[Rfam]
RNA sequence: GCGGCACCGGGGCUCCGGCCCCGGUGAGGAUCACAAC
Numbered sequence: 001g002c003g004g005c006a007c008c009g010g011g012g013c014u015c016c017g018g019c020c021c022c023g024g025u026g027a028g029g030a031u032c033a034c035a036a037c
Stems, first nucleotide, its partner, number of pairs: 005026009